Nucleotides: 062
Base pairs, nucleotide, nucleotide: 010025011024012023013022016053017052018051019050020049021048033043034042035041
Number, partner (000 for none) and nucleotide at each position: 001000g002000c003000g004000u005000g006000g007000g008000a009000u010025g011024g012023g013022g014000a015000u016053g017052g018051a019050g020049c021048u022013c023012c024011c025010c026000g027000a028000c029000a030000a031000c032000c033043g034042c035041c036000a037000u038000a039000u040000c041035g042034g043033c044000u045000g046000a047000u048021a049020g050019c051018u052017c053016c054000u055000g056000c057000c058000a059000a060000c061000g062000g

Rfam assigns this 62-nucleotide RNA sequence from Mycoplana dimorpha to the family "Fluoride riboswitch aptamer (crcB RNA motif)". The source organism's lineage runs through Bacteria, Pseudomonadati, Pseudomonadota, Rhizobiaceae and Mycoplana.